[Rfam]
RNA sequence: ACACGACAAUGGCAAACCCGUUGAAAAACGGAGACGCAAAGCUUCCGGUCUAAGUGCGCAUGCGCAUAGGACAGCGGGGUCACCGAA
Numbered sequence: 001a002c003a004c005g006a007c008a009a010u011g012g013c014a015a016a017c018c019c020g021u022u023g024a025a026a027a028a029c030g031g032a033g034a035c036g037c038a039a040a041g042c043u044u045c046c047g048g049u050c051u052a053a054g055u056g057c058g059c060a061u062g063c064g065c066a067u068a069g070g071a072c073a074g075c076g077g078g079g080u081c082a083c084c085g086a087a
Base pairs, nucleotide, nucleotide: 012037013036018031019030020029021028022027041080042079043078045077046076047075048072049071050070055066056065057064058063